[Rfam]
RNA sequence: GUGGGCUAUGGGGACAUGUACCCCGUGACCAUCGGAGGUAAAAUUGUUGGAUCUCUUUGCGCCAUUGCCGGUGUGUUGACCAUUGCACUGCCAGUACCGGUCAUCGUGUCCAAU
Numbered sequence: 001g002u003g004g005g006c007u008a009u010g011g012g013g014a015c016a017u018g019u020a021c022c023c024c025g026u027g028a029c030c031a032u033c034g035g036a037g038g039u040a041a042a043a044u045u046g047u048u049g050g051a052u053c054u055c056u057u058u059g060c061g062c063c064a065u066u067g068c069c070g071g072u073g074u075g076u077u078g079a080c081c082a083u084u085g086c087a088c089u090g091c092c093a094g095u096a097c098c099g100g101u102c103a104u105c106g107u108g109u110c111c112a113a114u
Base pairs, nucleotide, nucleotide: 001114002113004111005110007108008107009106010105011104013102014101015100018097019096020095021094037077038076039075040074049063050062